[Rfam]
RNA sequence: GCUAUAAUCUCACUUCUCUUCCCAGUUCUCCCCAGAGUCGGGAAAAGCUGAGUUGAGAAGGGAAAAAAUAAAUGAU
Numbered sequence: 001g002c003u004a005u006a007a008u009c010u011c012a013c014u015u016c017u018c019u020u021c022c023c024a025g026u027u028c029u030c031c032c033c034a035g036a037g038u039c040g041g042g043a044a045a046a047g048c049u050g051a052g053u054u055g056a057g058a059a060g061g062g063a064a065a066a067a068a069u070a071a072a073u074g075a076u
Stems, first nucleotide, its partner, number of pairs: 014059005021052001023050003029044001031042003
Dot-bracket structure: .............(((((..(.(((...(.(((......))).)...))).)..))))).................
Rfam assigns this 76-nucleotide RNA from Otolemur garnettii to the family "mir-320 microRNA precursor family". Pairs were carried over by alignment from the consensus structure, which was predicted with RNAalifold. A reference for the family is Berezikov et al. (2006), "Many novel mammalian microRNA candidates identified by extensive cloning and RAKE analysis", Genome Res.